[Rfam]
RNA sequence: GCCCCGGUAGCCCAGCGGUAGAGGCCCGGUGCUCAAACCACCGACAGCGUGGGUUCGAAUCCCACCCGGGGCA
Number, nucleotide and partner (000 for none) at each position: 001g072002c071003c070004c069005c068006g067007g066008u000009a000010g025011c024012c023013c000014a000015g000016c000017g000018g000019u000020a000021g000022a000023g012024g011025c010026c000027c043028g042029g041030u040031g039032c000033u000034c000035a000036a000037a000038c000039c031040a030041c029042c028043g027044a000045c000046a000047g000048c000049g065050u064051g063052g062053g061054u000055u000056c000057g000058a000059a000060u000061c053062c052063c051064a050065c049066c007067c006068g005069g004070g003071g002072c001073a000
RNA: tRNA
Organism: Streptomyces colonosanans